[Rfam]
RNA sequence: AAAAGGCGAUGAAGCGAAAGGUUGUUGACACACCCGGCCCCUUUGCCAUGGCUAGUGAGUCAAGUUUUUUCGCGGAGAAUGUCUAUUUCAAAAAUGGGCGAAGA
Numbered sequence: 001a002a003a004a005g006g007c008g009a010u011g012a013a014g015c016g017a018a019a020g021g022u023u024g025u026u027g028a029c030a031c032a033c034c035c036g037g038c039c040c041c042u043u044u045g046c047c048a049u050g051g052c053u054a055g056u057g058a059g060u061c062a063a064g065u066u067u068u069u070u071c072g073c074g075g076a077g078a079a080u081g082u083c084u085a086u087u088u089c090a091a092a093a094a095u096g097g098g099c100g101a102a103g104a
Stems, first nucleotide, its partner, number of pairs: 014073003018069004025063005080103001082101002087098003